[Rfam]
RNA sequence: GAGAGGUCGGAAUUUUAAUGAAUUACAAUAAAACCGACCUCUUGA
Numbered sequence: 001g002a003g004a005g006g007u008c009g010g011a012a013u014u015u016u017a018a019u020g021a022a023u024u025a026c027a028a029u030a031a032a033a034c035c036g037a038c039c040u041c042u043u044g045a
Stems, first nucleotide, its partner, number of pairs: 001043010013033005019027002
Source information
MIR7991 microRNA precursor family: a 45-nucleotide RNA sequence from Solanum commersonii. The base pairs follow the family's consensus structure, which was predicted with RNAalifold. The organism belongs to Solanum, within Eukaryota.